RNA sequence: UUAGCAGGUCUCCUUAUCGAUUUGGCUUUAAACGUCAGAUAGGAAAGUCCGGACACCAUAGUGCAGUAUAGCGGGUAACGCCCGUCACCUGAUAGUUACUGUCAGGGAGGACAAGUGCAGCAGAAAGUAUGUACAGGUAAGGCUGUAGUGAAACCAGGUAAACUCUAUACGGUGAAACGUCAUGUAAAUCAGUGUUCGAGGGCGGCACGUCCGAGCUGAAGGGUAGGCGGUUAGAGCCUUUGGGCAACCAAAGGUCCAGAUAAAUGAUAAGGGCAUUCUGAAUUUUUCAGGAUGAACAGAAUCCGGCUUAUGACCUGCUUUUUUA
Numbered sequence: 001u002u003a004g005c006a007g008g009u010c011u012c013c014u015u016a017u018c019g020a021u022u023u024g025g026c027u028u029u030a031a032a033c034g035u036c037a038g039a040u041a042g043g044a045a046a047g048u049c050c051g052g053a054c055a056c057c058a059u060a061g062u063g064c065a066g067u068a069u070a071g072c073g074g075g076u077a078a079c080g081c082c083c084g085u086c087a088c089c090u091g092a093u094a095g096u097u098a099c100u101g102u103c104a105g106g107g108a109g110g111a112c113a114a115g116u117g118c119a120g121c122a123g124a125a126a127g128u129a130u131g132u133a134c135a136g137g138u139a140a141g142g143c144u145g146u147a148g149u150g151a152a153a154c155c156a157g158g159u160a161a162a163c164u165c166u167a168u169a170c171g172g173u174g175a176a177a178c179g180u181c182a183u184g185u186a187a188a189u190c191a192g193u194g195u196u197c198g199a200g201g202g203c204g205g206c207a208c209g210u211c212c213g214a215g216c217u218g219a220a221g222g223g224u225a226g227g228c229g230g231u232u233a234g235a236g237c238c239u240u241u242g243g244g245c246a247a248c249c250a251a252a253g254g255u256c257c258a259g260a261u262a263a264a265u266g267a268u269a270a271g272g273g274c275a276u277u278c279u280g281a282a283u284u285u286u287u288c289a290g291g292a293u294g295a296a297c298a299g300a301a302u303c304c305g306g307c308u309u310a311u312g313a314c315c316u317g318c319u320u321u322u323u324u325a
Base pairs, nucleotide, nucleotide: 003319004318005317006316007315008314009313010312012272013271014270015269016268017267018266020040021039022038023037024036025035026034028032045309046308047307049306050305051304052303053302054174055173056172057171061208062207063206064205066170067169068168069167070166071085072084073083074082075081086109088106089105090104091103092102093101094100110165111164115163116162117159118158178229179228180227181226189219190218191217192216193215200212201211202210203209236255237254238253239252240251241250242249243248
A member of the RNA family "Bacterial RNase P class A" from Maribacter luteus, 325 nucleotides long. Clan: RNaseP clan. Rfam describes the family as follows. Ribonuclease P (RNase P) is a ubiquitous endoribonuclease, found in archaea, bacteria and eukarya as well as chloroplasts and mitochondria. The family's RNA type in Rfam is ribozyme. Its family is annotated with tRNA processing, ribonuclease P activity and dimeric ribonuclease P complex in the Gene Ontology.